[Rfam]
RNA sequence: GCUGGAGGACUAAGAAGGCGGAGUCUGGUGAAGCAAGACUCCGCUGAUACCAUCCUCCUAGAGAAAAGGGUGGGCGAGAGCAGCCCUCACUGGAGGGUGCUGUGGGGCUGACUGCACCGCCCGACAUGC
Numbered sequence: 001g002c003u004g005g006a007g008g009a010c011u012a013a014g015a016a017g018g019c020g021g022a023g024u025c026u027g028g029u030g031a032a033g034c035a036a037g038a039c040u041c042c043g044c045u046g047a048u049a050c051c052a053u054c055c056u057c058c059u060a061g062a063g064a065a066a067a068g069g070g071u072g073g074g075c076g077a078g079a080g081c082a083g084c085c086c087u088c089a090c091u092g093g094a095g096g097g098u099g100c101u102g103u104g105g106g107g108c109u110g111a112c113u114g115c116a117c118c119g120c121c122c123g124a125c126a127u128g129c
Stems, first nucleotide, its partner, number of pairs: 002061002004058006017045003021041006068122004079113002081110007091102003
RNA: Small Cajal body specific RNA 4